RNA sequence: GGAGACGUAGUCUAAUUGGUAAGGCGUCGGUCUUGAAAACCGAUGAGGUAACCCCUCGUGCGAGUUCGAGUCUCGCCGUCUCCG
Numbered sequence: 001g002g003a004g005a006c007g008u009a010g011u012c013u014a015a016u017u018g019g020u021a022a023g024g025c026g027u028c029g030g031u032c033u034u035g036a037a038a039a040c041c042g043a044u045g046a047g048g049u050a051a052c053c054c055c056u057c058g059u060g061c062g063a064g065u066u067c068g069a070g071u072c073u074c075g076c077c078g079u080c081u082c083c084g
Stems, first nucleotide, its partner, number of pairs: 001083007010025004027043005060076005
Rfam assigns this 84-nucleotide RNA sequence from Tepiditoga spiralis to the family "tRNA".
Transfer RNA (tRNA) molecules are approximately 80 nucleotides in length.
It scores 63 bits against the family's covariance model.
The organism belongs to Tepiditoga, within Bacteria.